[Rfam]
RNA sequence: UAUAUAUUGCAUAAAAACACUUUGCAGUUGGUAGUCUGCAAGCAUUCAAAAAAUGUCAGUAACCUUCCCUCCAGGUCGUCCAUUGCAAAAUUUUAUUUU
Numbered sequence: 001u002a003u004a005u006a007u008u009g010c011a012u013a014a015a016a017a018c019a020c021u022u023u024g025c026a027g028u029u030g031g032u033a034g035u036c037u038g039c040a041a042g043c044a045u046u047c048a049a050a051a052a053a054u055g056u057c058a059g060u061a062a063c064c065u066u067c068c069c070u071c072c073a074g075g076u077c078g079u080c081c082a083u084u085g086c087a088a089a090a091u092u093u094u095a096u097u098u099u
Stems, first nucleotide, its partner, number of pairs: 004091002007088005022041006042056005067075002
This 99-nucleotide RNA sequence from Streptococcus urinalis belongs to the Rfam family "azaaromatic riboswitch aptamer (yjdF RNA)". Pairs were carried over by alignment from the consensus structure, which is taken from published work. The organism belongs to Streptococcus urinalis, within Bacteria. It scores 82 bits against the family's covariance model.